Background: Shown here is a 141-nucleotide sequence from Serratia symbiotica, a member of the family "CpoB/ybgF ICR thermometer". For this family Rfam cites "Temperature-responsive in vitro RNA structurome of Yersinia pseudotuberculosis" (Righetti et al., Proc Natl Acad Sci U S A, 2016). Imprinting control region from upstream of cpoB/ybgF (tol/pal system protein). The family's RNA type in Rfam is RNA thermoregulator. Its family is annotated with regulation of translation and response to temperature stimulus in the Gene Ontology.
RNA sequence: CCAGAUCUCUAUCGUUUCCUACGGCAAAGAAAAACCAGCCGUACUGGGUCACGACGCAGCGGCUUAUGCUAAAAACCGCCGUGCCGUUCUGGUUUACUAAGAAAAUCGUAUGAAUAAUAGUAACUUCAGAUGUCAUGUGUU
Numbered sequence: 001c002c003a004g005a006u007c008u009c010u011a012u013c014g015u016u017u018c019c020u021a022c023g024g025c026a027a028a029g030a031a032a033a034a035c036c037a038g039c040c041g042u043a044c045u046g047g048g049u050c051a052c053g054a055c056g057c058a059g060c061g062g063c064u065u066a067u068g069c070u071a072a073a074a075a076c077c078g079c080c081g082u083g084c085c086g087u088u089c090u091g092g093u094u095u096a097c098u099a100a101g102a103a104a105a106u107c108g109u110a111u112g113a114a115u116a117a118u119a120g121u122a123a124c125u126u127c128a129g130a131u132g133u134c135a136u137g138u139g140u141u
Stems, first nucleotide, its partner, number of pairs: 001047004007041001014035004020029001054140002057137002062133002065130001067128002075121002078115001080112005086106003090102001